RNA sequence: GGUGCACACAAAACCCAAAGAUUAUUCUCUGUAAUACUCUUGUCUGGUGUGCGCACAGCAACAGGACUAUGUCGCCUUUCUGGAGCUGAUGUGCCCAUGAAAGUGAACCUAAAAGUUCUACACUU
Numbered sequence: 001g002g003u004g005c006a007c008a009c010a011a012a013a014c015c016c017a018a019a020g021a022u023u024a025u026u027c028u029c030u031g032u033a034a035u036a037c038u039c040u041u042g043u044c045u046g047g048u049g050u051g052c053g054c055a056c057a058g059c060a061a062c063a064g065g066a067c068u069a070u071g072u073c074g075c076c077u078u079u080c081u082g083g084a085g086c087u088g089a090u091g092u093g094c095c096c097a098u099g100a101a102a103g104u105g106a107a108c109c110u111a112a113a114a115g116u117u118c119u120a121c122a123c124u125u
Base pairs, nucleotide, nucleotide: 002054003053004052005051006050007049008048009047020039021038023036024035025034026033064118065117066116067115068114070112076103077102078101079100080099083096085094086093